[Rfam]
RNA: mir-29 microRNA precursor family
RNA sequence: ACUGUCCUGGCUUCCUGUGAUGCGUAGAAUAUUUUAAUUUCUAGCACCAUGUGAAAUCAGUGCAGU
Numbered sequence: 001a002c003u004g005u006c007c008u009g010g011c012u013u014c015c016u017g018u019g020a021u022g023c024g025u026a027g028a029a030u031a032u033u034u035u036a037a038u039u040u041c042u043a044g045c046a047c048c049a050u051g052u053g054a055a056a057u058c059a060g061u062g063c064a065g066u
Stems, first nucleotide, its partner, number of pairs: 001066004007060004012055003017050003021046002025043004